RNA: Bacterial RNase P class B
Organism: Aquisalibacillus elongatus
RNA sequence: GAGCUUGCAUAACCGCUCUGUUAUACAGAGAGGAAAGUCCAUGCUCACACAGGCUGAGAUGCUUGUAGUGUUCGUGCUUGACGAAACCAUAAGUCAAGGGAGUUAGCAUCUGCUAAUUUACGGCAGGGAAACAAUCUAAGUCCUUUUGGAUAAGAUUGAAUUACCUUUAAAGUGCCACAGUGACGUAUUUUGAUUGGAAACAAUCAAAGUGGAACGCGGUAAACCCCACGAGUGAGCAACCCAAACGAUGGUAGGGGCACUUUUUGCAGGGAAUUCAACCUAGCAAAAAGGUAAGUCAUUUGACUUGCAGAUAGAUGGUUAUGGCUGGAGUACGAGGUUGACCACCGUUUGUAGUACAAAGGUACAGAACAUGGCUUACAAAG
Number, nucleotide and partner (000 for none) at each position: 001g000002a000003g000004c383005u382006u381007g379008c323009a322010u321011a320012a319013c318014c317015g000016c030017u029018c028019u027020g026021u025022u000023a000024u000025a021026c020027a019028g018029a017030g016031a000032g000033g000034a000035a377036a376037g375038u000039c374040c373041a372042u371043g370044c236045u235046c234047a233048c232049a066050c065051a064052g063053g062054c061055u000056g000057a000058g000059a000060u000061g054062c053063u052064u051065g050066u049067a000068g000069u000070g000071u000072u231073c230074g229075u228076g227077c098078u097079u096080g095081a094082c093083g000084a000085a000086a000087c000088c000089a000090u000091a000092a000093g082094u081095c080096a079097a078098g077099g121100g119101a118102g117103u116104u115105a114106g113107c112108a000109u000110c000111u000112g107113c106114u105115a104116a103117u102118u101119u100120a000121c099122g226123g225124c000125a166126g165127g164128g000129a000130a000131a000132c000133a157134a156135u155136c154137u000138a000139a000140g151141u150142c149143c000144u000145u000146u000147u000148g000149g142150a141151u140152a000153a000154g136155a135156u134157u133158g000159a000160a000161u000162u000163a000164c127165c126166u125167u000168u000169a000170a000171a000172g224173u223174g220175c219176c218177a000178c000179a000180g000181u000182g000183a000184c000185g000186u000187a000188u000189u208190u207191u206192g205193a204194u203195u202196g201197g000198a000199a000200a000201c196202a195203a194204u193205c192206a191207a190208a189209g000210u000211g000212g000213a000214a000215c000216g000217c000218g176219g175220u174221a000222a000223a173224c172225c123226c122227c076228a075229c074230g073231a072232g048233u047234g046235a045236g044237c000238a000239a000240c256241c255242c254243a000244a000245a000246c000247g000248a000249u000250g000251g000252u000253a000254g242255g241256g240257g000258c000259a000260c290261u289262u288263u287264u286265u285266g284267c000268a000269g000270g000271g000272a000273a000274u000275u000276c000277a000278a000279c000280c000281u000282a000283g000284c266285a265286a264287a263288a262289a261290g260291g308292u307293a306294a305295g304296u303297c000298a000299u000300u000301u000302g000303a296304c295305u294306u293307g292308c291309a000310g000311a000312u000313a000314g000315a000316u000317g014318g013319u012320u011321a010322u009323g008324g000325c362326u361327g000328g000329a000330g357331u356332a355333c354334g000335a000336g000337g000338u000339u000340g000341a000342c000343c000344a000345c000346c000347g000348u000349u000350u000351g000352u000353a000354g333355u332356a331357c330358a000359a000360a000361g326362g325363u000364a000365c000366a000367g000368a000369a000370c043371a042372u041373g040374g039375c037376u036377u035378a000379c007380a000381a006382a005383g004